[Rfam]
Nucleotides: 084
Base pairs, nucleotide, nucleotide: 002083003082004081005080006079009076010075011074
Number, partner (000 for none) and nucleotide at each position: 001000g002083u003082c004081u005080g006079a007000a008000a009076u010075a011074c012000a013000g014000u015000g016000a017000u018000g019000u020000u021000u022000u023000c024000u025000u026000u027000u028000c029000c030000a031000a032000g033000c034000a035000c036000a037000g038000a039000u040000c041000u042000g043000a044000u045000u046000g047000c048000c049000g050000c051000g052000u053000g054000u055000g056000a057000a058000a059000a060000a061000u062000g063000a064000c065000u066000g067000u068000u069000g070000c071000u072000g073000a074011g075010u076009g077000a078000u079006u080005u081004g082003g083002g084000g
The record is an 84-nucleotide sequence from Chaetura pelagica, which matches "Small nucleolar RNA SNORD121A" in Rfam.
The source organism's lineage runs through Eukaryota, Craniata, Vertebrata, Gnathostomata and Chaetura.
For this family Rfam cites "snoSeeker: an advanced computational package for screening of guide and orphan snoRNA genes in the human genome" (Yang et al., Nucleic Acids Res, 2006).